[Rfam]
RNA sequence: CCAGAGGGCGGGGCGAUCGCUCGUCGGCGUUUUGCCGGCGGGAGGAAAGUCCGGGCUCCGCAGGACAGGAUGGUCGAUAACGUCGACCGGCCGCGAGGCCAGGGAAAGUGCAACAGAGAGCAGACCGCCGAACGGUUCACCGGGGCUCGUCCCCGCUGGACGCGUGGUAAGGGUGAAACGGUGCGGUAAGAGCGCACCAGCGAUCGGGGUGACCCGAUCGGCUCGGUAAACCCCAUCCGGAGCUAGACCAAACAGGGUGCAGAAGCGGUCCGCUUCGCCAUCGACACUCGGGUAGGUCGCAAUGGAGGCGACGAGCAAUCGUCGUGCACAGAUAAAUGAUCGCUGCCAUCGGCGCGCCGCUGCCGGAAUCCGUUCCGGCCGCCCGCUCCGAUCGGUACAGAACCCGGCUUACAAGCCCUCUGGUCGU
Numbered sequence: 001c002c003a004g005a006g007g008g009c010g011g012g013g014c015g016a017u018c019g020c021u022c023g024u025c026g027g028c029g030u031u032u033u034g035c036c037g038g039c040g041g042g043a044g045g046a047a048a049g050u051c052c053g054g055g056c057u058c059c060g061c062a063g064g065a066c067a068g069g070a071u072g073g074u075c076g077a078u079a080a081c082g083u084c085g086a087c088c089g090g091c092c093g094c095g096a097g098g099c100c101a102g103g104g105a106a107a108g109u110g111c112a113a114c115a116g117a118g119a120g121c122a123g124a125c126c127g128c129c130g131a132a133c134g135g136u137u138c139a140c141c142g143g144g145g146c147u148c149g150u151c152c153c154c155g156c157u158g159g160a161c162g163c164g165u166g167g168u169a170a171g172g173g174u175g176a177a178a179c180g181g182u183g184c185g186g187u188a189a190g191a192g193c194g195c196a197c198c199a200g201c202g203a204u205c206g207g208g209g210u211g212a213c214c215c216g217a218u219c220g221g222c223u224c225g226g227u228a229a230a231c232c233c234c235a236u237c238c239g240g241a242g243c244u245a246g247a248c249c250a251a252a253c254a255g256g257g258u259g260c261a262g263a264a265g266c267g268g269u270c271c272g273c274u275u276c277g278c279c280a281u282c283g284a285c286a287c288u289c290g291g292g293u294a295g296g297u298c299g300c301a302a303u304g305g306a307g308g309c310g311a312c313g314a315g316c317a318a319u320c321g322u323c324g325u326g327c328a329c330a331g332a333u334a335a336a337u338g339a340u341c342g343c344u345g346c347c348a349u350c351g352g353c354g355c356g357c358c359g360c361u362g363c364c365g366g367a368a369u370c371c372g373u374u375c376c377g378g379c380c381g382c383c384c385g386c387u388c389c390g391a392u393c394g395g396u397a398c399a400g401a402a403c404c405c406g407g408c409u410u411a412c413a414a415g416c417c418c419u420c421u422g423g424u425c426g427u
Stems, first nucleotide, its partner, number of pairs: 001423009011412001012344007020042009047410003051407005056242004063275002066272001068238005073087005088102001089100004103233002108231002110227002125172002127168004133162002180198006200222001201220008246298004255289005267279003307327001308325007

Record summary:
Bacterial RNase P class A: a 427-nucleotide RNA sequence from Stieleria maiorica. Gene Ontology terms of the family: ribonuclease P activity, tRNA processing and dimeric ribonuclease P complex. The organism belongs to Stieleria, within Bacteria.